Notes: Shown here is a 182-nucleotide sequence from Bacillus manliponensis, a member of the family "Lysine riboswitch aptamer". Rfam links the family to the GO term lysine biosynthetic process. Rfam's curators write: Riboswitches are metabolite binding domains within certain messenger RNAs that serve as precision sensors for their corresponding targets. Allosteric rearrangement of mRNA structure is mediated by ligand binding, and this results in modulation of gene expression. This family includes riboswitches that sense lysine in a number of genes involved in lysine metabolism, including lysC.

[Rfam]
RNA sequence: CGAUGAGGUAGAGGUUGCAUCCAUUAAUAGUAUCGUUCAGGAGAUGUUGUGGCAUUGAUGAAUGAACGAGAAAGGAAUGGUUGCCGAAGUGAGACAUGCCCACUGCAUUGUCUUGCUGGGUCUGUACUGAAUAAGUGCAGAACUGUCACAAGUAGCAAUACUUGUGGAGAGCUAUCAAGAGA
Numbered sequence: 001c002g003a004u005g006a007g008g009u010a011g012a013g014g015u016u017g018c019a020u021c022c023a024u025u026a027a028u029a030g031u032a033u034c035g036u037u038c039a040g041g042a043g044a045u046g047u048u049g050u051g052g053c054a055u056u057g058a059u060g061a062a063u064g065a066a067c068g069a070g071a072a073a074g075g076a077a078u079g080g081u082u083g084c085c086g087a088a089g090u091g092a093g094a095c096a097u098g099c100c101c102a103c104u105g106c107a108u109u110g111u112c113u114u115g116c117u118g119g120g121u122c123u124g125u126a127c128u129g130a131a132u133a134a135g136u137g138c139a140g141a142a143c144u145g146u147c148a149c150a151a152g153u154a155g156c157a158a159u160a161c162u163u164g165u166g167g168a169g170a171g172c173u174a175u176c177a178a179g180a181g182a
Base pairs, nucleotide, nucleotide: 007176008175009174010173011172017084018083019082021080022079023078024077025076033069034068035067036066037065038064039063088117089116090115091114092113093112094111095110096109097107098106118144119143121141122140123139124138125137126136127135128134146167147166148165149164150163151162152161